[Rfam]
RNA sequence: GUAUGUGUGUGGAUGGUGUUCCGCACCAGGGACAGGAUUGCAUGUGUAUGAAUGGUGUUCAGCACCAGGGACAGGAUUGCAUAUGU
Number, nucleotide and partner (000 for none) at each position: 001g000002u075003a000004u073005g072006u071007g000008u000009g000010u000011g000012g000013a000014u067015g066016g065017u064018g063019u062020u061021c000022c000023g058024c057025a056026c055027c054028a053029g000030g047031g000032a045033c044034a043035g000036g041037a000038u000039u000040g000041c036042a000043u034044g033045u032046g000047u030048a000049u000050g000051a000052a000053u028054g027055g026056u025057g024058u023059u000060c000061a020062g019063c018064a017065c016066c015067a014068g000069g000070g000071a006072c005073a004074g000075g002076a000077u000078u000079g000080c000081a000082u000083a000084u000085g000086u000

Rfam assigns this 86-nucleotide RNA sequence from Branchiostoma floridae to the family "mir-2060 microRNA precursor family". The match comes from Rfam's covariance-model search (62 bits).